[Rfam]
RNA sequence: ACUUCUUUUGGGAAUGAAGAUCUCCCAUGGAUAAAACCUAAACCGCAUUUUAUGCUGAUGACUUCUGUCGUAAG
Numbered sequence: 001a002c003u004u005c006u007u008u009u010g011g012g013a014a015u016g017a018a019g020a021u022c023u024c025c026c027a028u029g030g031a032u033a034a035a036a037c038c039u040a041a042a043c044c045g046c047a048u049u050u051u052a053u054g055c056u057g058a059u060g061a062c063u064u065c066u067g068u069c070g071u072a073a074g
Base pairs, nucleotide, nucleotide: 010026011025012024013023016065017064018063019062021060045055046054047053